[Rfam]
RNA: Small nucleolar RNA SNORD58
Organism: Pleuronectes platessa
RNA sequence: CUGCAGUGAUGACAUUCUUAGGACACCUUUGGAUUAAAGAUGAAACUAAACUAUUACCCUGAGCAGA
Numbered sequence: 001c002u003g004c005a006g007u008g009a010u011g012a013c014a015u016u017c018u019u020a021g022g023a024c025a026c027c028u029u030u031g032g033a034u035u036a037a038a039g040a041u042g043a044a045a046c047u048a049a050a051c052u053a054u055u056a057c058c059c060u061g062a063g064c065a066g067a
Base pairs, nucleotide, nucleotide: 001066002065003064004063